[Rfam]
RNA: Small nucleolar RNA SNORD115
RNA sequence: GGGUAUGUGAUGACAAACCAAAGUUACAAAGAGAGUUGAUGACAUAAAAUUCAUGCUCAAUAGGAUUAUGCUGAGGCCC
Number, nucleotide and partner (000 for none) at each position: 001g079002g078003g077004u076005a000006u000007g000008u070009g069010a000011u000012g000013a000014c000015a000016a000017a000018c000019c000020a000021a000022a000023g000024u000025u000026a000027c000028a000029a000030a000031g000032a000033g000034a000035g000036u000037u000038g000039a000040u000041g000042a000043c000044a000045u000046a000047a000048a000049a000050u000051u000052c000053a000054u000055g000056c000057u000058c000059a000060a000061u000062a000063g000064g000065a000066u000067u000068a000069u009070g008071c000072u000073g000074a000075g000076g004077c003078c002079c001